A member of the RNA family "Ribosomal protein L10 leader" from Companilactobacillus tucceti, 118 nucleotides long. On this family, see Iben and Draper, Biochemistry 2008: "Specific interactions of the L10(L12)4 ribosomal protein complex with mRNA, rRNA, and L11". Rfam's curators write: This family is a putative r-protein leader autoregulatory structure found in B. subtilis and other low-GC Gram-positive bacteria. It is located in the 5' untranslated regions of mRNAs encoding ribosomal proteins L10 and L12 (rplJ-rplL). A Rho-independent transcription terminator structure that is probably involved in regulation is included at the 3' end.
[Rfam]
RNA sequence: UACAAUAGUUGAUUUCUACCGAAGACUCAGGUGAUGUAAAUCUUAAUAUCCUGCCGAGGCCAGAAGAUUGUUAAUUAAUCUCUGUGUCCUUCGGACGCAGAGAUUUUAUUUUAGCCGA
Numbered sequence: 001u002a003c004a005a006u007a008g009u010u011g012a013u014u015u016c017u018a019c020c021g022a023a024g025a026c027u028c029a030g031g032u033g034a035u036g037u038a039a040a041u042c043u044u045a046a047u048a049u050c051c052u053g054c055c056g057a058g059g060c061c062a063g064a065a066g067a068u069u070g071u072u073a074a075u076u077a078a079u080c081u082c083u084g085u086g087u088c089c090u091u092c093g094g095a096c097g098c099a100g101a102g103a104u105u106u107u108a109u110u111u112u113a114g115c116c117g118a
Base pairs, nucleotide, nucleotide: 028053029052030051031050033042034041035040079103080102081101082100083099084098085097086096087095088094
The organism belongs to Companilactobacillus tucceti, within Bacteria.